[Rfam]
RNA: Manganese Mn2+ riboswitch aptamer (yybP-ykoY)
Organism: Paenalcaligenes hominis
Nucleotides: 197
Base pairs, nucleotide, nucleotide: 037057038056039055059103060102061101063099064098065097066096067095068094076093077092078091079090080089104197106195107194108193109192
Number, partner (000 for none) and nucleotide at each position: 001000c002000c003000g004000c005000u006000a007000u008000a009000g010000u011000u012000u013000g014000g015000g016000u017000c018000g019000u020000c021000a022000u023000u024000g025000g026000g027000g028000a029000g030000u031000a032000g033000c034000c035000g036000c037057u038056c039055u040000a041000a042000c043000a044000c045000a046000a047000c048000a049000a050000u051000g052000u053000g054000u055039a056038g057037a058000g059103g060102u061101u062000u063099g064098c065097g066096u067095c068094a069000a070000c071000a072000u073000a074000c075000u076093u077092g078091a079090u080089c081000c082000c083000u084000u085000c086000u087000u088000g089080g090079a091078u092077c093076a094068u095067g096066g097065c098064g099063c100000c101061g102060a103059c104197a105000g106195u107194u108193c109192u110000a111000u112000a113000c114000c115000u116000g117000g118000c119000a120000a121000g122000a123000c124000c125000u126000u127000u128000g129000a130000c131000c132000g133000u134000a135000u136000g137000g138000c139000u140000u141000c142000c143000a144000g145000u146000a147000u148000g149000g150000c151000c152000g153000g154000g155000g156000a157000a158000g159000c160000c161000a162000u163000a164000c165000g166000g167000u168000c169000a170000a171000u172000u173000g174000u175000c176000u177000a178000a179000a180000a181000a182000a183000c184000c185000g186000g187000c188000c189000a190000g191000g192109a193108g194107a195106a196000a197104u